Rfam assigns this 90-nucleotide RNA sequence from Pangasianodon hypophthalmus to the family "Small nucleolar RNA SNORD60".
By type it is a C/D-box small nucleolar RNA.
The family's consensus secondary structure was predicted with PFOLD.
The source organism's lineage runs through Eukaryota, Bilateria, Otophysi, Siluroidei and Pangasianodon.
The literature on the family includes a 2002 paper in Mol Cell Biol by Galardi et al., "Purified box C/D snoRNPs are able to reproduce site-specific 2'-O-methylation of target RNA in vitro".
Clan: SNORD60 clan.
RNA sequence: UGCCACUGAUGACUCCUUUAAAACAUUUUUCUGACACCUUCUCUGAGCGCUGCACUGCAGGCUUUGAUUACAAAUUUGAACCUGAGGCUU
Numbered sequence: 001u002g003c004c005a006c007u008g009a010u011g012a013c014u015c016c017u018u019u020a021a022a023a024c025a026u027u028u029u030u031c032u033g034a035c036a037c038c039u040u041c042u043c044u045g046a047g048c049g050c051u052g053c054a055c056u057g058c059a060g061g062c063u064u065u066g067a068u069u070a071c072a073a074a075u076u077u078g079a080a081c082c083u084g085a086g087g088c089u090u
Base pairs, nucleotide, nucleotide: 002088003087004086050060051059052058053057
Dot-bracket structure: .(((.............................................((((...)))).........................)))..